Overview:
Shown here is a 250-nucleotide sequence from Halobacillus salinus, a member of the family "T-box leader". Gene Ontology term of the family: tRNA binding. The base pairs follow the family's consensus structure, which is taken from published work. It is annotated as a cis-regulatory leader. Rfam describes the family as follows. Uncharged tRNA acts as the effector for transcription antitermination of genes in the T-box leader family. T-boxes are found upstream of many aminoacyl-tRNA synthetase genes and some amino acid biosynthetic genes usually in Gram-positive bacteria.

RNA sequence: CCAAACGCAGGGAAGAGAAGAGUAGAUGAGUACAGUUCUUCACAGAGAGCUCUUGAUGGUGUGAAAAGAGCAAGGACGACCUCGUUGAAACAAGCCUCUAGAGCGUCGCAUGGGAACGAUGGUUGGGAUCGUGCGCCGGGUGCUCCCGUUACAGAGCUAGGGUAUAACCAGUGAUGGCGUACCCGAAAAGGUUGAUAUGGUGACGUAUCAACAAACUGGGGUGGCACCGCGAAAGGAUCUCGUCCCCAAG
Numbered sequence: 001c002c003a004a005a006c007g008c009a010g011g012g013a014a015g016a017g018a019a020g021a022g023u024a025g026a027u028g029a030g031u032a033c034a035g036u037u038c039u040u041c042a043c044a045g046a047g048a049g050c051u052c053u054u055g056a057u058g059g060u061g062u063g064a065a066a067a068g069a070g071c072a073a074g075g076a077c078g079a080c081c082u083c084g085u086u087g088a089a090a091c092a093a094g095c096c097u098c099u100a101g102a103g104c105g106u107c108g109c110a111u112g113g114g115a116a117c118g119a120u121g122g123u124u125g126g127g128a129u130c131g132u133g134c135g136c137c138g139g140g141u142g143c144u145c146c147c148g149u150u151a152c153a154g155a156g157c158u159a160g161g162g163u164a165u166a167a168c169c170a171g172u173g174a175u176g177g178c179g180u181a182c183c184c185g186a187a188a189a190g191g192u193u194g195a196u197a198u199g200g201u202g203a204c205g206u207a208u209c210a211a212c213a214a215a216c217u218g219g220g221g222u223g224g225c226a227c228c229g230c231g232a233a234a235g236g237a238u239c240u241c242g243u244c245c246c247c248a249a250g
Stems, first nucleotide, its partner, number of pairs: 007104002014099004025086006038074003049071006107135007137148003191212007218247004229243004